[Rfam]
RNA sequence: AUAUAAUUUGGGCAAACCUGCCGAAAGGCAGGGACGCAAAGCUAUGGGCCUAAAGUACCUUAUCCGCUACGGUUGCCAAGCUGCACUU
Numbered sequence: 001a002u003a004u005a006a007u008u009u010g011g012g013c014a015a016a017c018c019u020g021c022c023g024a025a026a027g028g029c030a031g032g033g034a035c036g037c038a039a040a041g042c043u044a045u046g047g048g049c050c051u052a053a054a055g056u057a058c059c060u061u062a063u064c065c066g067c068u069a070c071g072g073u074u075g076c077c078a079a080g081c082u083g084c085a086c087u088u
Stems, first nucleotide, its partner, number of pairs: 012037002017032006040082004045078003048073003055067002
This 88-nucleotide sequence from Effusibacillus lacus belongs to the Rfam family "c-di-GMP-I riboswitch aptamer".
Rfam describes the family as follows. GEMM was predicted in a large-scale screen for bacterial structured RNA regulatory elements. Genes associated with GEMM are involved in a diverse array of functions, including chemotaxis regulation, signal transduction, secretion and chitin.
NCBI's taxonomy places the organism under Bacteria, Bacillota, Bacilli, Alicyclobacillaceae, Effusibacillus.
Rfam 15.1 lists 5,092 matches to the family in 1,772 species.